[Rfam]
RNA sequence: CGUAUCCAACAUUUGAUCAUCUGCCUUAUUCGAAAAAUUUAUAAAAAAAAACAAGUCACGCAUAAAGUAUUAUUCAUGUUUUAUCAUAUAAGAACAAUAAAAAUACUAAUCAUAAAAAAAGUAAAUAAGACGGACGGUUAAACGUUGGACACG
Numbered sequence: 001c002g003u004a005u006c007c008a009a010c011a012u013u014u015g016a017u018c019a020u021c022u023g024c025c026u027u028a029u030u031c032g033a034a035a036a037a038u039u040u041a042u043a044a045a046a047a048a049a050a051a052c053a054a055g056u057c058a059c060g061c062a063u064a065a066a067g068u069a070u071u072a073u074u075c076a077u078g079u080u081u082u083a084u085c086a087u088a089u090a091a092g093a094a095c096a097a098u099a100a101a102a103a104u105a106c107u108a109a110u111c112a113u114a115a116a117a118a119a120a121g122u123a124a125a126u127a128a129g130a131c132g133g134a135c136g137g138u139u140a141a142a143c144g145u146u147g148g149a150c151a152c153g
Stems, first nucleotide, its partner, number of pairs: 005149006012142007020134004025129005
The record is a 153-nucleotide RNA from Oryza sativa, which matches "MIR812 microRNA precursor family" in Rfam. The family's consensus secondary structure was predicted with RNAalifold.